[Rfam]
RNA sequence: GGCUGGCGGGAAGGCAACGAUCCGCCGGGCGUUCAUCUGGUCGCCCAUAGGCCCGGCGGGGAGCCAGUGGCGAAACCGGCCCCGAAACUC
Numbered sequence: 001g002g003c004u005g006g007c008g009g010g011a012a013g014g015c016a017a018c019g020a021u022c023c024g025c026c027g028g029g030c031g032u033u034c035a036u037c038u039g040g041u042c043g044c045c046c047a048u049a050g051g052c053c054c055g056g057c058g059g060g061g062a063g064c065c066a067g068u069g070g071c072g073a074a075a076c077c078g079g080c081c082c083c084g085a086a087a088c089u090c
Stems, first nucleotide, its partner, number of pairs: 001090002004087001007084004013065003022059008039077002041073005
RNA: c-di-GMP-II-GAG riboswitch aptamer